[Rfam]
RNA: Small nucleolar RNA SNORA51
RNA sequence: GGCCCCCUAGUGCUUACCACAGGCUGUGUUUUCACAUUGAUUGUCUAGAAAGAUGAGGCAGAGCAAACCUGAUCCAUGUACACCCCAGCCCACGCCACUGAGCCUGGUCUGUAUUGUGAAUGGGCAGACAUGG
Dot-bracket structure: .(((.(.(...........(((...((((....))))...))).........).).))).............(((((........(((.(((.((......)).))).)))........))))).........